[Rfam]
RNA sequence: CAUUCACAAAAUAACUUAUUCUUCUGUAGUCACUUUGAGUUACGAUAAUUACUAUGUUAAUUUACGAGAUUAUAGUAACUUCUUAUGGUUUACUAUAACGUUAUGGUAAAUAUCCCCAUGUGUUAUAGUAACCCAACUAUCGUAAAUAUGUAUUGACAUUAUCGUACAUUAGUAUAUAAAAUUAUCGUAAAUAGAGGUGGCUACAGAAUAACUUAUUUGAUAGCUG
Numbered sequence: 001c002a003u004u005c006a007c008a009a010a011a012u013a014a015c016u017u018a019u020u021c022u023u024c025u026g027u028a029g030u031c032a033c034u035u036u037g038a039g040u041u042a043c044g045a046u047a048a049u050u051a052c053u054a055u056g057u058u059a060a061u062u063u064a065c066g067a068g069a070u071u072a073u074a075g076u077a078a079c080u081u082c083u084u085a086u087g088g089u090u091u092a093c094u095a096u097a098a099c100g101u102u103a104u105g106g107u108a109a110a111u112a113u114c115c116c117c118a119u120g121u122g123u124u125a126u127a128g129u130a131a132c133c134c135a136a137c138u139a140u141c142g143u144a145a146a147u148a149u150g151u152a153u154u155g156a157c158a159u160u161a162u163c164g165u166a167c168a169u170u171a172g173u174a175u176a177u178a179a180a181a182u183u184a185u186c187g188u189a190a191a192u193a194g195a196g197g198u199g200g201c202u203a204c205a206g207a208a209u210a211a212c213u214u215a216u217u218u219g220a221u222a223g224c225u226g
Stems, first nucleotide, its partner, number of pairs: 001226002004223001006221001009218006016211005024206013040190011053176009063166003068163003072159002077153001083145002085140006091130011105115002
Background
MIR6217 microRNA precursor family: a 226-nucleotide RNA sequence from Miscanthus lutarioriparius.